[Rfam]
RNA sequence: AUGAGAAAUGCGGAAGAGACCAAUAUCAAUUGGCGCCGAAGGAGUAAGUCAUAAGUUUGCCAUUUAUGGAGAAUCUCUCAGGCAAAAGGACCGUAUUUGGACA
Numbered sequence: 001a002u003g004a005g006a007a008a009u010g011c012g013g014a015a016g017a018g019a020c021c022a023a024u025a026u027c028a029a030u031u032g033g034c035g036c037c038g039a040a041g042g043a044g045u046a047a048g049u050c051a052u053a054a055g056u057u058u059g060c061c062a063u064u065u066a067u068g069g070a071g072a073a074u075c076u077c078u079c080a081g082g083c084a085a086a087a088g089g090a091c092c093g094u095a096u097u098u099g100g101a102c103a
Base pairs, nucleotide, nucleotide: 006098007097008096009095010094011093012092013091020033021032022031023030035083036082037081038079039078042077043076044075049070050069
The family of this 103-nucleotide sequence from Proteiniborus sp. DW1 is "Glycine riboswitch aptamer". Lineage of the source: Bacteria > Bacillati > Bacillota > Eubacteriales > Proteiniborus. It scores 69 bits against the family's covariance model. Pairs were carried over by alignment from the consensus structure.